[Rfam]
RNA sequence: CCAUGCCUUUGUGAGGUGAGGCUCCUGCGUGGAUAUACGCCGCUGCCCCGAAAUGUCGAGAGACGCCAAGGGGUUGAACAGGCAGAUUCGGAUUAAGGAUCUGCAUAACGCGGCUCAAGCGAAACCCUGAGAGGUUUCCAAACGCCCCGCAGUGCUAAAACCGCAACGAGGAAGGCCUGU
Numbered sequence: 001c002c003a004u005g006c007c008u009u010u011g012u013g014a015g016g017u018g019a020g021g022c023u024c025c026u027g028c029g030u031g032g033a034u035a036u037a038c039g040c041c042g043c044u045g046c047c048c049c050g051a052a053a054u055g056u057c058g059a060g061a062g063a064c065g066c067c068a069a070g071g072g073g074u075u076g077a078a079c080a081g082g083c084a085g086a087u088u089c090g091g092a093u094u095a096a097g098g099a100u101c102u103g104c105a106u107a108a109c110g111c112g113g114c115u116c117a118a119g120c121g122a123a124a125c126c127c128u129g130a131g132a133g134g135u136u137u138c139c140a141a142a143c144g145c146c147c148c149g150c151a152g153u154g155c156u157a158a159a160a161c162c163g164c165a166a167c168g169a170g171g172a173a174g175g176c177c178u179g180u
Stems, first nucleotide, its partner, number of pairs: 005176006011167002015162003020156003025152005031146002039114005045074005054065004082104003087099003
Rfam assigns this 180-nucleotide RNA sequence from Alkalispirochaeta americana to the family "M-box riboswitch aptamer (ykoK leader)". Gene Ontology terms of the family: regulation of gene expression and response to magnesium ion. A reference for the family is Barrick et al. (2004), "New RNA motifs suggest an expanded scope for riboswitches in bacterial genetic control", Proc Natl Acad Sci U S A. From the family's description: M-box riboswitch, also know as ykoK leader is described as a metaloregulatory RNA that sense divalent metals and function as a genetic control element of genes related to divalent metal transport in bacteria. It was first reported upstream of the B.subtilis ykoK gene and genes with related functions in other bacteria. The base pairs follow the family's consensus structure.